Nucleotides: 100
Base pairs, nucleotide, nucleotide: 018086019085020084021083022082024080025079029049030048031047032046033045034044058076059075060074061073062072063071
Number, partner (000 for none) and nucleotide at each position: 001000a002000a003000a004000c005000u006000c007000a008000g009000g010000a011000g012000a013000c014000a015000g016000c017000u018086u019085u020084u021083c022082g023000a024080u025079a026000u027000a028000a029049u030048c031047c032046g033045g034044a035000u036000a037000a038000u039000a040000g041000g042000g043000u044034u045033c046032c047031g048030g049029a050000g051000u052000u053000u054000c055000u056000a057000c058076c059075a060074g061073a062072u063071a064000c065000c066000g067000u068000a069000a070000a071063u072062a073061u074060c075059u076058g077000a078000c079025u080024a081000c082022c083021g084020g085019a086018a087000g088000a089000a090000a091000a092000g093000a094000u095000a096000a097000a098000g099000u100000a